[Rfam]
RNA: c-di-AMP riboswitch aptamer (ydaO/yuaA leader)
Organism: Flavimobilis soli
RNA sequence: GCACCAAGACCGCUGGCAGAGGCGGGGGAACCACCAACGGCUCCAGCACCACCGGAGCCUUGGGGUGAAGUCGGCCGGUUCGCCGGUCGGCCGGGCAGCUCUCUAGCCCGAACCCGACAGCUAACUUCGUAGGCGUUCAUGGAGAGGCACU
Numbered sequence: 001g002c003a004c005c006a007a008g009a010c011c012g013c014u015g016g017c018a019g020a021g022g023c024g025g026g027g028g029a030a031c032c033a034c035c036a037a038c039g040g041c042u043c044c045a046g047c048a049c050c051a052c053c054g055g056a057g058c059c060u061u062g063g064g065g066u067g068a069a070g071u072c073g074g075c076c077g078g079u080u081c082g083c084c085g086g087u088c089g090g091c092c093g094g095g096c097a098g099c100u101c102u103c104u105a106g107c108c109c110g111a112a113c114c115c116g117a118c119a120g121c122u123a124a125c126u127u128c129g130u131a132g133g134c135g136u137u138c139a140u141g142g143a144g145a146g147g148c149a150c151u
Stems, first nucleotide, its partner, number of pairs: 002135001004133002011019001022130006032062002063115003071090006093109004